[Rfam]
RNA sequence: AGGAACAACCGCAGUGGCGGCGGCCAGCUCUGGAGCCCUGGAGUCAGCUCCCGCAGUAACUCCGGAGCUCUCCAUCUGCAGGGGCCUGGAUGUUCUGGGGUGGG
Numbered sequence: 001a002g003g004a005a006c007a008a009c010c011g012c013a014g015u016g017g018c019g020g021c022g023g024c025c026a027g028c029u030c031u032g033g034a035g036c037c038c039u040g041g042a043g044u045c046a047g048c049u050c051c052c053g054c055a056g057u058a059a060c061u062c063c064g065g066a067g068c069u070c071u072c073c074a075u076c077u078g079c080a081g082g083g084g085c086c087u088g089g090a091u092g093u094u095c096u097g098g099g100g101u102g103g104g
Base pairs, nucleotide, nucleotide: 002096003095004094005093006092007091009088011086012084016076017075019073020072022071023070026069027068028067029066030065031064032063033062034061038056039055040054
mir-8834 microRNA precursor family: a 104-nucleotide RNA from Vulpes vulpes. Pairs were carried over by alignment from the consensus structure, which was predicted with RNAalifold. The family has 2 seed sequences and 13,926 matches in Rfam 15.1. The match comes from Rfam's covariance-model search (65 bits).